[Rfam]
RNA: Small nucleolar RNA SNORD91 family
Organism: Microcebus murinus
Nucleotides: 092
Stems, first nucleotide, its partner, number of pairs: 004089007
Number, partner (000 for none) and nucleotide at each position: 001000c002000a003000g004089a005088g006087a007086a008085g009084u010083c011000a012000a013000u014000g015000a016000u017000g018000g019000u020000u021000u022000u023000a024000c025000c026000c027000a028000a029000a030000a031000u032000g033000u034000c035000u036000g037000a038000a039000c040000c041000u042000g043000u044000c045000u046000g047000a048000a049000g050000c051000a052000u053000c054000u055000c056000a057000g058000u059000g060000a061000u062000g063000c064000a065000g066000u067000c068000c069000c070000c071000g072000u073000g074000u075000g076000g077000u078000u079000c080000u081000g082000a083010g084009a085008c086007u087006u088005c089004u090000c091000u092000a